A member of the RNA family "TPP riboswitch aptamer (THI element)" from Scopulibacillus darangshiensis, 115 nucleotides long. About the family: Vitamin B(1) in its active form thiamin pyrophosphate (TPP) is an essential coenzyme that is synthesised by coupling of pyrimidine and thiazole moieties in bacteria. Rfam links the family to the GO term thiamine pyrophosphate binding. Taxonomically the source falls in Scopulibacillus (Bacteria, Bacillati, Bacilli, Sporolactobacillaceae). Pairs were carried over by alignment from the consensus structure, which is taken from published work.
RNA sequence: AAUAAGAACUAGGGGUGUCCAAUGAGUUGGGCUGAGAGAAGAACGCAUUGAGGUUCUUUAACCCUCGGGACCUGAUCUGGUUCACACCAGCGUGGGGAAGUUAGUCAAUAUUGUU
Numbered sequence: 001a002a003u004a005a006g007a008a009c010u011a012g013g014g015g016u017g018u019c020c021a022a023u024g025a026g027u028u029g030g031g032c033u034g035a036g037a038g039a040a041g042a043a044c045g046c047a048u049u050g051a052g053g054u055u056c057u058u059u060a061a062c063c064c065u066c067g068g069g070a071c072c073u074g075a076u077c078u079g080g081u082u083c084a085c086a087c088c089a090g091c092g093u094g095g096g097g098a099a100g101u102u103a104g105u106c107a108a109u110a111u112u113g114u115u
Base pairs, nucleotide, nucleotide: 007102008101009100010099011065012064013063014062017032018031019030020029021028039058040057041056042055043054071096072095073094074093077090078089079088080087